[Rfam]
RNA sequence: GGAUCGAUGAUGAUAUCAAAAAAAAUAAACCAACAAACCCAAACCAACAUUCCUUGGAAAAUCUGAACAAAAUGAGUGAGAAAUACUUCGUCGUUCCCAUCGGUUACUGAGGUCC
Numbered sequence: 001g002g003a004u005c006g007a008u009g010a011u012g013a014u015a016u017c018a019a020a021a022a023a024a025a026u027a028a029a030c031c032a033a034c035a036a037a038c039c040c041a042a043a044c045c046a047a048c049a050u051u052c053c054u055u056g057g058a059a060a061a062u063c064u065g066a067a068c069a070a071a072a073u074g075a076g077u078g079a080g081a082a083a084u085a086c087u088u089c090g091u092c093g094u095u096c097c098c099a100u101c102g103g104u105u106a107c108u109g110a111g112g113u114c115c
Base pairs, nucleotide, nucleotide: 001115002114003113004112005111048078049077050076051075052074054070055069056068
Rfam assigns this 115-nucleotide RNA from Pipistrellus kuhlii to the family "Small nucleolar RNA SNORD116". The family has 48 seed sequences and 3,260 matches in Rfam 15.1. Its family is annotated with RNA processing and nucleolus in the Gene Ontology.